[Rfam]
RNA: skipping-rope RNA
RNA sequence: AAAACCGGAGGACAGAACAGGCAGCCGUCGCCCAUCGUUCGGAGAUGUGGGAAGUGUUACCCCGCCUGGUUUC
Numbered sequence: 001a002a003a004a005c006c007g008g009a010g011g012a013c014a015g016a017a018c019a020g021g022c023a024g025c026c027g028u029c030g031c032c033c034a035u036c037g038u039u040c041g042g043a044g045a046u047g048u049g050g051g052a053a054g055u056g057u058u059a060c061c062c063c064g065c066c067u068g069g070u071u072u073c
Stems, first nucleotide, its partner, number of pairs: 002072007011029003015025001020058004031042001047065005